Shown here is a 502-nucleotide sequence from Pseudofrankia asymbiotica, a member of the family "Saccharopolyspora sRNA 350". Its family is annotated with regulation of secondary metabolite biosynthetic process in the Gene Ontology. By type it is an antisense RNA. On this family, see Liu et al., PLoS One 2013: "Prediction and characterization of small non-coding RNAs related to secondary metabolites in Saccharopolyspora erythraea". The match comes from Rfam's covariance-model search (116 bits).
RNA sequence: CGCACGGUGUAGUCCCAGGUGGUGGCCGCCUCGACGAGCACCUCGUCGCCGAAGAACUCGCCGUCGCUGAGGAUGCCCAGCGACCGCUCGUCGUCGUAGGUGCCCGGGGCGUGUCUCUCGGCCUUCCCGUGGGCGAUGAGGAAGACCUCGUCGGCGGCGUCGCCGGCCGACACGAGGACGUCGCCGGCCGAGUACUCGCGCUGGACGAAGCCGUCCGCGAGGGCGGUGAGCUCCGGGCCGUCGAACCCGCGCAGCGGCGGCAGCUCGGUGAGCUCGGCCGGCACGACCCGGACGUCCGACCCGGUGCUGAUGAAGGUGACGAGGCGGUCGCCCGCGACGUAGGUGAGCCGCCGGUUGACGCGGUAGACGCCGCCAGCGGUCUGUACCCAGGGCAGGACGCGCAGCAGCCAGCGGGAGGAGAUCUCCUGCAUCUGCGGGACGGACUUGGUGGUCGUCGCGAGAUUCCGCGCGGCCGCGGUGCUGAGGCUCAGCUGGUUGUCAG
Numbered sequence: 001c002g003c004a005c006g007g008u009g010u011a012g013u014c015c016c017a018g019g020u021g022g023u024g025g026c027c028g029c030c031u032c033g034a035c036g037a038g039c040a041c042c043u044c045g046u047c048g049c050c051g052a053a054g055a056a057c058u059c060g061c062c063g064u065c066g067c068u069g070a071g072g073a074u075g076c077c078c079a080g081c082g083a084c085c086g087c088u089c090g091u092c093g094u095c096g097u098a099g100g101u102g103c104c105c106g107g108g109g110c111g112u113g114u115c116u117c118u119c120g121g122c123c124u125u126c127c128c129g130u131g132g133g134c135g136a137u138g139a140g141g142a143a144g145a146c147c148u149c150g151u152c153g154g155c156g157g158c159g160u161c162g163c164c165g166g167c168c169g170a171c172a173c174g175a176g177g178a179c180g181u182c183g184c185c186g187g188c189c190g191a192g193u194a195c196u197c198g199c200g201c202u203g204g205a206c207g208a209a210g211c212c213g214u215c216c217g218c219g220a221g222g223g224c225g226g227u228g229a230g231c232u233c234c235g236g237g238c239c240g241u242c243g244a245a246c247c248c249g250c251g252c253a254g255c256g257g258c259g260g261c262a263g264c265u266c267g268g269u270g271a272g273c274u275c276g277g278c279c280g281g282c283a284c285g286a287c288c289c290g291g292a293c294g295u296c297c298g299a300c301c302c303g304g305u306g307c308u309g310a311u312g313a314a315g316g317u318g319a320c321g322a323g324g325c326g327g328u329c330g331c332c333c334g335c336g337a338c339g340u341a342g343g344u345g346a347g348c349c350g351c352c353g354g355u356u357g358a359c360g361c362g363g364u365a366g367a368c369g370c371c372g373c374c375a376g377c378g379g380u381c382u383g384u385a386c387c388c389a390g391g392g393c394a395g396g397a398c399g400c401g402c403a404g405c406a407g408c409c410a411g412c413g414g415g416a417g418g419a420g421a422u423c424u425c426c427u428g429c430a431u432c433u434g435c436g437g438g439a440c441g442g443a444c445u446u447g448g449u450g451g452u453c454g455u456c457g458c459g460a461g462a463u464u465c466c467g468c469g470c471g472g473c474c475g476c477g478g479u480g481c482u483g484a485g486g487c488u489c490a491g492c493u494g495g496u497u498g499u500c501a502g
Stems, first nucleotide, its partner, number of pairs: 006387007014379002019325002023321001027318004031313002037308006045302001049298001051296002054233002057230008065111004075103001077102001078099001080097005117222002122217001126213001130209001131206001134203002138199001140197001143196002149190002153188001155186005160178002164174002234290001237287001239285003246280001250276002253274003258267002327338003348376001350374001352372003388428005394422001398418001400415001402413001404412001434473002437470001440467004445461002448458002477500003482495001484493002